[Rfam]
RNA sequence: GGCAGAUUAUGUCUGUUCUCAUGAUGGUCUUCAGAUGCCCACAGCAAUCACUGGUGAGAGAGCUAACUGCCUUGGCUGAUGCCAGGAA
Numbered sequence: 001g002g003c004a005g006a007u008u009a010u011g012u013c014u015g016u017u018c019u020c021a022u023g024a025u026g027g028u029c030u031u032c033a034g035a036u037g038c039c040c041a042c043a044g045c046a047a048u049c050a051c052u053g054g055u056g057a058g059a060g061a062g063c064u065a066a067c068u069g070c071c072u073u074g075g076c077u078g079a080u081g082c083c084a085g086g087a088a
Stems, first nucleotide, its partner, number of pairs: 001083004
A member of the RNA family "Small nucleolar RNA SNORD35" from Erinaceus europaeus, 88 nucleotides long. About the family: U35 is a C/D box snoRNA located in intron 6 of ribosomal protein L13A and intron 3 of ribosomal protein S11 in humans and at homologous positions in mouse and chicken ribosomal protein genes. U35 guides the methylation of 2'-O-ribose sites in 28S rRNA. Its Rfam clan is "SNORD35 clan". The family has 8 seed sequences and 1,842 matches in Rfam 15.1. A search with the family's covariance model found it, with a score of 70 bits.